[Rfam]
RNA sequence: GGAAGCGUUGAGCAUUGGCAGGCUCCGCGGAUUUGAAAUCCGUCAUACGUGUGAGCGUAUUGGGGGUUCGACUCCCCCCGCUUCC
Numbered sequence: 001g002g003a004a005g006c007g008u009u010g011a012g013c014a015u016u017g018g019c020a021g022g023c024u025c026c027g028c029g030g031a032u033u034u035g036a037a038a039u040c041c042g043u044c045a046u047a048c049g050u051g052u053g054a055g056c057g058u059a060u061u062g063g064g065g066g067u068u069c070g071a072c073u074c075c076c077c078c079c080g081c082u083u084c085c
Base pairs, nucleotide, nucleotide: 001085002084003083004082005081006080007078010025011024012023013022015020027043028042029041030040031039046059047058048057049056050055063077064076065075066074